Source information:
Rfam assigns this 121-nucleotide RNA from Hordeum vulgare to the family "MIR394 microRNA precursor family".
[Rfam]
RNA sequence: CUUACCGAGAGCUCUUUGGCAUUCUGUCCACCUCCUCCUGAAUCUUGCAGGGGAGAUCUCACGAUCUGUCGAGCUUGCUGAUUGCUUGGAGGUGGGCAUACUGCCAAUGGAGCUGUGUAGG
Numbered sequence: 001c002u003u004a005c006c007g008a009g010a011g012c013u014c015u016u017u018g019g020c021a022u023u024c025u026g027u028c029c030a031c032c033u034c035c036u037c038c039u040g041a042a043u044c045u046u047g048c049a050g051g052g053g054a055g056a057u058c059u060c061a062c063g064a065u066c067u068g069u070c071g072a073g074c075u076u077g078c079u080g081a082u083u084g085c086u087u088g089g090a091g092g093u094g095g096g097c098a099u100a101c102u103g104c105c106a107a108u109g110g111a112g113c114u115g116u117g118u119a120g121g
Base pairs, nucleotide, nucleotide: 013111016107017106018105019104020103021102025098026097027096028095029094030093031092032091033090034089035088

NCBI's taxonomy places the organism under Eukaryota, Tracheophyta, Euphyllophyta, Hordeum, Hordeum vulgare. It scores 82 bits against the family's covariance model.